MIR2593 microRNA precursor family: a 113-nucleotide RNA sequence from Medicago truncatula. The source organism's lineage runs through Eukaryota, Embryophyta, Mesangiospermae, Gunneridae and Medicago.

RNA sequence: AUAUAAGCAAAUUUUACUUUUUAGGUUCAUUCAAUCAAUGAUGUAUGUGGUCCAUAAUAUGAAUCACAUACAUCAUUAAUUGAAUGAACCUAAAAAGUCAAAUUUACUUAUAU
Numbered sequence: 001a002u003a004u005a006a007g008c009a010a011a012u013u014u015u016a017c018u019u020u021u022u023a024g025g026u027u028c029a030u031u032c033a034a035u036c037a038a039u040g041a042u043g044u045a046u047g048u049g050g051u052c053c054a055u056a057a058u059a060u061g062a063a064u065c066a067c068a069u070a071c072a073u074c075a076u077u078a079a080u081u082g083a084a085u086g087a088a089c090c091u092a093a094a095a096a097g098u099c100a101a102a103u104u105u106a107c108u109u110a111u112a113u
Stems, first nucleotide, its partner, number of pairs: 002112006009105006016098009026088010037077007048066004